[Rfam]
RNA sequence: UGAACAUCCUGGUGACCAAACACAGUUAAAUCGGGAUGUUUGGUCGUCGAGACGUUCAAA
Numbered sequence: 001u002g003a004a005c006a007u008c009c010u011g012g013u014g015a016c017c018a019a020a021c022a023c024a025g026u027u028a029a030a031u032c033g034g035g036a037u038g039u040u041u042g043g044u045c046g047u048c049g050a051g052a053c054g055u056u057c058a059a060a
Stems, first nucleotide, its partner, number of pairs: 001058005007052002010049013023035001025032001
RNA: mir-7640 microRNA precursor family
Organism: Caenorhabditis brenneri